[Rfam]
RNA: mraW RNA
Nucleotides: 099
Base pairs, nucleotide, nucleotide: 010086011085013083014082015081018078019077021075022074023073024072025071027069028068029067030066032065033064034063036061037060038059039058040057041056042055043054
Number, partner (000 for none) and nucleotide at each position: 001000u002000c003000u004000g005000a006000u007000c008000c009000g010086c011085g012000g013083a014082u015081c016000g017000g018078g019077a020000c021075u022074c023073c024072c025071a026000g027069c028068c029067g030066u031000g032065g033064u034063g035000c036061c037060c038059u039058g040057a041056c042055a043054c044000a045000c046000c047000u048000u049000c050000c051000c052000c053000g054043g055042u056041g057040u058039c059038a060037g061036g062000u063034c064033g065032c066030a067029u068028g069027g070000a071025u072024g073023g074022g075021g076000a077019u078018c079000c080000g081015g082014g083013u084000g085011c086010g087000u088000g089000g090000c091000c092000c093000a094000g095000a096000c097000g098000g099000u